RNA sequence: AUACUUACCUGGACGGGGUCAAUGGCUGACCAAGAAGAGCCAUGGCCUAGGCUAGUGGCCCACAUUGCACUUUGUGGGUGCGCUGGCUUACCAUCUCCCCUUUGAGGGAGAGUGGAUGUCAUAAUUUGUGAUAGAGGGGUGCAAAAUAUCAAUUUUAAGUUUU
Numbered sequence: 001a002u003a004c005u006u007a008c009c010u011g012g013a014c015g016g017g018g019u020c021a022a023u024g025g026c027u028g029a030c031c032a033a034g035a036a037g038a039g040c041c042a043u044g045g046c047c048u049a050g051g052c053u054a055g056u057g058g059c060c061c062a063c064a065u066u067g068c069a070c071u072u073u074g075u076g077g078g079u080g081c082g083c084u085g086g087c088u089u090a091c092c093a094u095c096u097c098c099c100c101u102u103u104g105a106g107g108g109a110g111a112g113u114g115g116a117u118g119u120c121a122u123a124a125u126u127u128g129u130g131a132u133a134g135a136g137g138g139g140u141g142c143a144a145a146a147u148a149u150c151a152a153u154u155u156u157a158a159g160u161u162u163u
Base pairs, nucleotide, nucleotide: 012120013119014118015117016048017047018046019045020044021043023042024041025040026039027038049089050088051087053086055083056082057081060078061077062075063074091115092114093113094111095110096109098107099106143163144162145161146160
The family of this 163-nucleotide RNA sequence from Triticum turgidum is "U1 spliceosomal RNA".
The family's RNA type in Rfam is spliceosomal small nuclear RNA.
Lineage of the source: Eukaryota > Streptophytina > Mesangiospermae > Triticodae > Triticum turgidum.
A search with the family's covariance model found it, with a score of 106 bits.